[Rfam]
RNA sequence: AUGGGAGAGGUUCGCGAACUCCCUCUAUAAAAAACUAUGAGAAC
Numbered sequence: 001a002u003g004g005g006a007g008a009g010g011u012u013c014g015c016g017a018a019c020u021c022c023c024u025c026u027a028u029a030a031a032a033a034a035c036u037a038u039g040a041g042a043a044c
Stems, first nucleotide, its partner, number of pairs: 006026005016036001
Shown here is a 44-nucleotide sequence from Bacillus cytotoxicus, a member of the family "PreQ1 (pre queuosine) riboswitch aptamer". About the family: This family is a bacterial riboswitch that binds to the metabolite preQ1, an intermediate in the biosynthesis of the modified nucleoside queuosine from GTP. One example of this riboswitch is located in the leader of the Bacillus subtilis ykvJKLM (queCDEF) operon which encodes four genes necessary for queuosine production. PreQ1 binding to the riboswitch aptamer is thought to induce premature transcription termination within the leader to down-regulate expression of these genes. Taxonomically the source falls in Bacillus cytotoxicus (Bacteria, Bacillati, Caryophanales, Bacillaceae). Rfam's curators put it in the seed alignment. Rfam 15.1 lists 873 matches to the family in 692 species.